[Rfam]
RNA: mir-124 microRNA precursor family
Organism: Eptatretus burgeri
RNA sequence: CAUUCUGCGUGUUCACAGCGGACCUUGAUUUAAUGUCAUACAAUUAAGGCACGCGGUGAAUGCCAAGAACG
Dot-bracket structure: ..((((..((((((((.(((..((((((((...........))))))))..))).))))))))..))))..